Shown here is a 228-nucleotide RNA sequence from Balaeniceps rex, a member of the family "Small nucleolar RNA SNORD17". It is annotated as a C/D-box small nucleolar RNA. Rfam describes the family as follows. The snoRNA HBI-43 belongs to the C/D family of snoRNAs, guiding 2'O-ribose methylation at position U3797 of the 28S rRNA. Pseudouridylation in position U3797 is predicted to be guided by the H/ACA snoRNA ACA48. Lineage of the source: Eukaryota > Gnathostomata > Euteleostomi > Tetrapoda > Balaeniceps. On this family, see Huttenhofer et al., EMBO J 2001: "RNomics: an experimental approach that identifies 201 candidates for novel, small, non-messenger RNAs in mouse".
[Rfam]
RNA sequence: UUAUCCAUUCUCUGAGUGCAGUGGUGCUGCCCUCCUGCAGCACCCCGGAUUCCUGUUCUAGGGUCUGGGUGCUGUGCAGCCUCCAGAGACCUGCCAGUCUCCCAGUGUCCGACUGGGGGCUGCUGUGGUGUGUGGCUGGCUGCCUGCAGGAGCGAAGUGGUGCUGGCAGGGUUGGAGCCCCUCUGGGGGGCUGCAUCCUCACUGAGAUGAGGGAUGAUGUCUGAUCAC
Numbered sequence: 001u002u003a004u005c006c007a008u009u010c011u012c013u014g015a016g017u018g019c020a021g022u023g024g025u026g027c028u029g030c031c032c033u034c035c036u037g038c039a040g041c042a043c044c045c046c047g048g049a050u051u052c053c054u055g056u057u058c059u060a061g062g063g064u065c066u067g068g069g070u071g072c073u074g075u076g077c078a079g080c081c082u083c084c085a086g087a088g089a090c091c092u093g094c095c096a097g098u099c100u101c102c103c104a105g106u107g108u109c110c111g112a113c114u115g116g117g118g119g120c121u122g123c124u125g126u127g128g129u130g131u132g133u134g135g136c137u138g139g140c141u142g143c144c145u146g147c148a149g150g151a152g153c154g155a156a157g158u159g160g161u162g163c164u165g166g167c168a169g170g171g172u173u174g175g176a177g178c179c180c181c182u183c184u185g186g187g188g189g190g191c192u193g194c195a196u197c198c199u200c201a202c203u204g205a206g207a208u209g210a211g212g213g214a215u216g217a218u219g220u221c222u223g224a225u226c227a228c
Base pairs, nucleotide, nucleotide: 002217005213006212008211009210010209012206013205016202017201021167022166024164025162026161027160028159029158030157032154033151034150035149036148037147038146039145043071045069046068048065049064051063052062053061054060076143077142078141079140080139081138089129090128095122096121097120098119099118101117102116103115104114105113106112169200170199171197173195174194176192178190179189